Rfam assigns this 107-nucleotide RNA from Lutispora thermophila to the family "SAM riboswitch aptamer (S box leader)". Rfam describes the family as follows. The SAM riboswitch is found upstream of a number of genes which code for proteins involved in methionine or cysteine biosynthesis in Gram-positive bacteria. The organism belongs to Lutispora thermophila, within Bacteria.
[Rfam]
RNA sequence: CUCUUAUCCAGAGAGGCGGAGGGACUGGCCCAAUGAAGCCCGACAACCGGCAUUCUCAUUCGAAUGCAUCGGUGUUAAUUCCAGCAGCGUUAGCUGAAAGAUAAGAG
Numbered sequence: 001c002u003c004u005u006a007u008c009c010a011g012a013g014a015g016g017c018g019g020a021g022g023g024a025c026u027g028g029c030c031c032a033a034u035g036a037a038g039c040c041c042g043a044c045a046a047c048c049g050g051c052a053u054u055c056u057c058a059u060u061c062g063a064a065u066g067c068a069u070c071g072g073u074g075u076u077a078a079u080u081c082c083a084g085c086a087g088c089g090u091u092a093g094c095u096g097a098a099a100g101a102u103a104a105g106a107g
Stems, first nucleotide, its partner, number of pairs: 001107008013041001015040003021031003025084004042076004047072002050067005080099001085096004